RNA sequence: CCUGCCACGCCUCUUCACAAUGCGUACCAAGGCGGGU
Numbered sequence: 001c002c003u004g005c006c007a008c009g010c011c012u013c014u015u016c017a018c019a020a021u022g023c024g025u026a027c028c029a030a031g032g033c034g035g036g037u
Base pairs, nucleotide, nucleotide: 001036002035003034004033005032006031008024009023010022

Source information: The record is a 37-nucleotide RNA sequence from Anoxynatronum buryatiense, which matches "abiF RNA" in Rfam. Rfam's curators write: Actinobacteria, Bacteroidetes, Clostridia, Proteobacteria, one Clostridia phage. The family has 126 seed sequences and 282 matches in Rfam 15.1.